This 53-nucleotide RNA from Gossypium davidsonii belongs to the Rfam family "Plastid-atpF group II-D1 intron". From the family's description: Plastid atpF is a non-coding RNA (ncRNA) recognised in plastids. It has been reported in the intron group II-D1 region of ATP synthase (atpF) genes. The organism belongs to Gossypium, within Eukaryota. Its family is annotated with Group II intron splicing in the Gene Ontology. Pairs were carried over by alignment from the consensus structure, which was predicted with LocARNA. The literature on the family includes a 2023 paper in Plant Commun by Richter et al., "Retrograde signaling in plants: A critical review focusing on the GUN pathway and beyond". Rfam 15.1 lists 1,372 matches to the family in 227 species. It scores 65 bits against the family's covariance model.
RNA sequence: AAAAUAUUUUUCGACAUAAAACACUCAUGUCGAUAAAACGAUUUGAGCCUCUU
Numbered sequence: 001a002a003a004a005u006a007u008u009u010u011u012c013g014a015c016a017u018a019a020a021a022c023a024c025u026c027a028u029g030u031c032g033a034u035a036a037a038a039c040g041a042u043u044u045g046a047g048c049c050u051c052u053u
Stems, first nucleotide, its partner, number of pairs: 011033007
Dot-bracket structure: ..........(((((((.........)))))))....................